[Rfam]
RNA sequence: GCACUGGCUUAGCUCAGUGGUUACUUCGAACAACAAUUCAUCUCCAGAAUUCGAUUGUUCUCUAUCCCUUCGCGGGAUCGAACCACGGGCGCUGUCCAGUGUUUUG
Number, nucleotide and partner (000 for none) at each position: 001g000002c101003a100004c099005u098006g097007g096008c000009u000010u000011a000012g090013c089014u088015c087016a000017g086018u085019g084020g083021u000022u000023a000024c000025u082026u081027c080028g079029a078030a000031c000032a000033a000034c000035a000036a000037u000038u000039c000040a000041u000042c000043u000044c000045c000046a000047g000048a000049a000050u000051u000052c000053g000054a000055u000056u000057g000058u000059u000060c000061u000062c000063u000064a000065u000066c000067c000068c000069u000070u000071c000072g000073c000074g000075g000076g000077a000078u029079c028080g027081a026082a025083c020084c019085a018086c017087g015088g014089g013090c012091g000092c000093u000094g000095u000096c007097c006098a005099g004100u003101g002102u000103u000104u000105u000106g000
Description: This 106-nucleotide sequence from Gymnodraco acuticeps belongs to the Rfam family "Vault RNA". The family's RNA type in Rfam is non-coding RNA gene. The organism belongs to Gymnodraco, within Eukaryota. The family's consensus secondary structure is taken from published work. The literature on the family includes a 2009 paper in Mol Biol Evol by Stadler et al., "Evolution of Vault RNAs".